[Rfam]
RNA sequence: UAUUUAUCAGUGGCAGUGUCCACUAUAAAGC
Numbered sequence: 001u002a003u004u005u006a007u008c009a010g011u012g013g014c015a016g017u018g019u020c021c022a023c024u025a026u027a028a029a030g031c
Stems, first nucleotide, its partner, number of pairs: 003029005009024005014018001
This 31-nucleotide sequence from Menidia menidia belongs to the Rfam family "Iron response element II".
The family's RNA type in Rfam is cis-regulatory element.
A search with the family's covariance model found it, with a score of 34 bits.
Taxonomically the source falls in Menidia (Eukaryota, Craniata, Teleostomi, Euteleosteomorpha).
On this family, see Koeller et al., Proc Natl Acad Sci U S A 1989: "A cytosolic protein binds to structural elements within the iron regulatory region of the transferrin receptor mRNA".
Pairs were carried over by alignment from the consensus structure, which is taken from published work.
Rfam describes the family as follows. IRE, TFRC, SLC40A1, SDHB, SLC11A2, CDC42BPA, ACO2, ALAS2_H.SAPIENS, CDC14A, EPAS1, ALAS2, qoxD, Hao1, NDUFS1, transferrin, Aconitate.